Rfam assigns this 154-nucleotide RNA sequence from Anaerostipes caccae to the family "Clostridiales-1 RNA". It is one of the family's seed sequences. The base pairs follow the family's consensus structure, which is taken from published work. The organism belongs to Anaerostipes caccae, within Bacteria.
[Rfam]
RNA sequence: UGAUACCAGGGUCAAAAGGGUAUGCGUUUCAUGCUUGUAUGAAAAAGCAGGGCUUUGGGACCCAUAAAACAUGAGAAAGCAGCCCGAUUAGGGCGGAUUUCGAAUGUUUUUAGGAUUGUGGGAGCACAAAGUGCGGAACAAUCCGCAGGUAUCU
Number, nucleotide and partner (000 for none) at each position: 001u000002g153003a152004u151005a150006c149007c148008a000009g000010g062011g061012u060013c059014a000015a000016a056017a055018g054019g053020g000021u051022a000023u049024g048025c047026g000027u045028u044029u042030c041031a040032u039033g038034c000035u000036u000037g000038u033039a032040u031041g030042a029043a000044a028045a027046a000047g025048c024049a023050g000051g021052g000053c019054u018055u017056u016057g000058g000059g013060a012061c011062c010063c000064a000065u000066a110067a109068a108069a107070c106071a105072u104073g000074a000075g101076a100077a099078a098079g000080c000081a000082g094083c093084c092085c091086g000087a000088u000089u000090a000091g085092g084093g083094c082095g000096g000097a000098u078099u077100u076101c075102g000103a000104a072105u071106g070107u069108u068109u067110u066111u000112a000113g144114g143115a142116u141117u140118g139119u138120g000121g000122g000123a000124g134125c133126a132127c131128a000129a000130a000131g127132u126133g125134c124135g000136g000137a000138a119139c118140a117141a116142u115143c114144c113145g000146c000147a000148g007149g006150u005151a004152u003153c002154u000